[Rfam]
RNA sequence: AUAACUUAAAACCGAAAUACUUAUAUAAUAGUUGCGAUUGGGCGACGAGUUUCUACCUGGUUACCGUAAAUAACCGGACUAUGAGUAGUUUGUAUAAAGA
Numbered sequence: 001a002u003a004a005c006u007u008a009a010a011a012c013c014g015a016a017a018u019a020c021u022u023a024u025a026u027a028a029u030a031g032u033u034g035c036g037a038u039u040g041g042g043c044g045a046c047g048a049g050u051u052u053c054u055a056c057c058u059g060g061u062u063a064c065c066g067u068a069a070a071u072a073a074c075c076g077g078a079c080u081a082u083g084a085g086u087a088g089u090u091u092g093u094a095u096a097a098a099g100a
Stems, first nucleotide, its partner, number of pairs: 018087008029048001031046005057077007
RNA: Purine riboswitch aptamer
Organism: Listeria innocua